[Rfam]
RNA sequence: UUGUCCUGGCUUUUACCUUUCUUGCUUCCCUGUACUCGGUUUUAACAGGGUGGUUUAGCAAUGUACCUAGAAAUCCCCCUCUCAGAUUAGGAGGGCCAUACUAAGUAGGAGUGGCUAUGAAAGGCACAAGAAAAUAAU
Numbered sequence: 001u002u003g004u005c006c007u008g009g010c011u012u013u014u015a016c017c018u019u020u021c022u023u024g025c026u027u028c029c030c031u032g033u034a035c036u037c038g039g040u041u042u043u044a045a046c047a048g049g050g051u052g053g054u055u056u057a058g059c060a061a062u063g064u065a066c067c068u069a070g071a072a073a074u075c076c077c078c079c080u081c082u083c084a085g086a087u088u089a090g091g092a093g094g095g096c097c098a099u100a101c102u103a104a105g106u107a108g109g110a111g112u113g114g115c116u117a118u119g120a121a122a123g124g125c126a127c128a129a130g131a132a133a134a135u136a137a138u
Stems, first nucleotide, its partner, number of pairs: 002065003007060002010058002024054003028050006080131003085125001087123002092118001094116004099110001101108002
Small Cajal body specific RNA 11: a 138-nucleotide sequence from Ictidomys tridecemlineatus. The family's consensus secondary structure was predicted with RNAalifold. The family's RNA type in Rfam is small Cajal body RNA. For this family Rfam cites "Cajal body-specific small nuclear RNAs: a novel class of 2'-O-methylation and pseudouridylation guide RNAs" (Darzacq et al., EMBO J, 2002). Its family is annotated with RNA processing, nucleolus and Cajal body in the Gene Ontology. scaRNAs are a specific class of small nuclear RNAs which localise to the Cajal bodies and guide the modification of RNA polymerase II transcribed spliceosomal RNAs U1, U2, U4, U5 and U12. ACA57 belongs to the H/ACA box class of guide RNAs as it has the predicted hairpin-hinge-hairpin-tail structure, conserved H/ACA-box motifs and is found associated with GAR1. ACA57 is predicted to guide the pseudouridylation of the U5 spliceosomal RNA at position U43.